[Rfam]
RNA sequence: GGCCUCCUGGUACUUACCAUAAGCUGUGUUCUUGCACCAACUGUGUAGAGAGGAGCAGAGUAAGCUACUACUUAUUAGCCUUAUUCUGGGCCGUGUGUCUGGUCUGUAUUAUGAGUGGGGGACAUGG
Numbered sequence: 001g002g003c004c005u006c007c008u009g010g011u012a013c014u015u016a017c018c019a020u021a022a023g024c025u026g027u028g029u030u031c032u033u034g035c036a037c038c039a040a041c042u043g044u045g046u047a048g049a050g051a052g053g054a055g056c057a058g059a060g061u062a063a064g065c066u067a068c069u070a071c072u073u074a075u076u077a078g079c080c081u082u083a084u085u086c087u088g089g090g091c092c093g094u095g096u097g098u099c100u101g102g103u104c105u106g107u108a109u110u111a112u113g114a115g116u117g118g119g120g121g122a123c124a125u126g127g
Stems, first nucleotide, its partner, number of pairs: 002056001004055005020043002026037004068119002071117001073115001082106002086102006
RNA: Small nucleolar RNA SNORA51
Organism: Octodon degus